[Rfam]
RNA sequence: GCCAUCCGUCCGGGAGAGCGCGCGACUGUAUCGUCAUUCGCGCCGCCGAAGGGGAAUCACCCGAAAACUCUCAGGCACCAUGGACCGGGCGGAUCGG
Numbered sequence: 001g002c003c004a005u006c007c008g009u010c011c012g013g014g015a016g017a018g019c020g021c022g023c024g025a026c027u028g029u030a031u032c033g034u035c036a037u038u039c040g041c042g043c044c045g046c047c048g049a050a051g052g053g054g055a056a057u058c059a060c061c062c063g064a065a066a067a068c069u070c071u072c073a074g075g076c077a078c079c080a081u082g083g084a085c086c087g088g089g090c091g092g093a094u095c096g097g
Stems, first nucleotide, its partner, number of pairs: 006092008020043006045076003048072002052070003057064002
Glycine riboswitch aptamer: a 97-nucleotide RNA sequence from Cupriavidus sp. HPC(L). The match comes from Rfam's covariance-model search (54 bits). Rfam's curators write: This family represents the bacterial glycine riboswitch. Glycine riboswitches usually consist of two metabolite-binding aptamers domains with similar structures in tandem.